RNA sequence: UCUGGCAGGAAUGACACUCUUGCCCUGGCUGAGAAUGCUGUUCGGUAAUGAGAACGUUUAGAAGUACUUGCUUGCUCUGAGUCAGA
Numbered sequence: 001u002c003u004g005g006c007a008g009g010a011a012u013g014a015c016a017c018u019c020u021u022g023c024c025c026u027g028g029c030u031g032a033g034a035a036u037g038c039u040g041u042u043c044g045g046u047a048a049u050g051a052g053a054a055c056g057u058u059u060a061g062a063a064g065u066a067c068u069u070g071c072u073u074g075c076u077c078u079g080a081g082u083c084a085g086a
Stems, first nucleotide, its partner, number of pairs: 001086006
Dot-bracket structure: ((((((..........................................................................))))))
Small nucleolar RNA SNORD103/SNORD85: an 86-nucleotide sequence from Apteryx owenii. The pairing is the family consensus, mapped onto this sequence. It scores 64 bits against the family's covariance model. Its family is annotated with nucleolus and RNA processing in the Gene Ontology.